Rfam assigns this 88-nucleotide RNA from Aegilops tauschii to the family "Small nucleolar RNA R16". A reference for the family is Marker et al. (2002), "Experimental RNomics: identification of 140 candidates for small non-messenger RNAs in the plant Arabidopsis thaliana", Curr Biol. It scores 66 bits against the family's covariance model. It is annotated as a C/D-box small nucleolar RNA.
RNA sequence: ACUGGCAAUUGAUGAUCAGAUAUCCUACACUCCCAAUGGACAAUUCCAUGUGUGGACUAACAAUCUCCGCUUAUUAUCUGAUGCCUUG
Numbered sequence: 001a002c003u004g005g006c007a008a009u010u011g012a013u014g015a016u017c018a019g020a021u022a023u024c025c026u027a028c029a030c031u032c033c034c035a036a037u038g039g040a041c042a043a044u045u046c047c048a049u050g051u052g053u054g055g056a057c058u059a060a061c062a063a064u065c066u067c068c069g070c071u072u073a074u075u076a077u078c079u080g081a082u083g084c085c086u087u088g
Stems, first nucleotide, its partner, number of pairs: 004085004